[Rfam]
Nucleotides: 130
Stems, first nucleotide, its partner, number of pairs: 003059006014051002016046003022038005070123005093104003
Number, partner (000 for none) and nucleotide at each position: 001000a002000u003059c004058u005057u006056c007055u008054c009000a010000u011000u012000g013000a014051g015050c016046u017045c018044c019000u020000u021000u022038c023037u024036g025035u026034c027000a028000g029000c030000c031000a032000g033000u034026g035025g036024c037023a038022g039000u040000u041000u042000a043000a044018g045017g046016a047000u048000u049000c050015g051014c052000a053000c054008g055007a056006g057005a058004a059003g060000a061000a062000g063000a064000g065000g066000a067000a068000a069000u070123u071122c072121a073120c074119a075000u076000a077000a078000c079000u080000a081000g082000c083000u084000c085000u086000u087000u088000u089000u090000u091000g092000g093104c094103c095102u096000c097000u098000u099000c100000u101000g102095a103094g104093g105000c106000a107000c108000a109000u110000u111000u112000u113000g114000c115000u116000g117000u118000u119074u120073g121072u122071g123070a124000g125000a126000c127000a128000u129000g130000g
Annotation:
The family of this 130-nucleotide RNA sequence from Erinaceus europaeus is "Small nucleolar RNA SNORA75". U23 belongs to the H/ACA class of snoRNAs. snoRNAs bind a number of proteins (including dyskerin, Gar1p and Nop10p in the case of the H/ACA class) to form snoRNP complexes. Gene Ontology terms of the family: nucleolus and RNA processing. For this family Rfam cites "The family of box ACA small nucleolar RNAs is defined by an evolutionarily conserved secondary structure and ubiquitous sequence elements essential for RNA accumulation" (Ganot et al., Genes Dev, 1997). Rfam classes the family as an H/ACA-box small nucleolar RNA. The base pairs follow the family's consensus structure, which was predicted with PFOLD.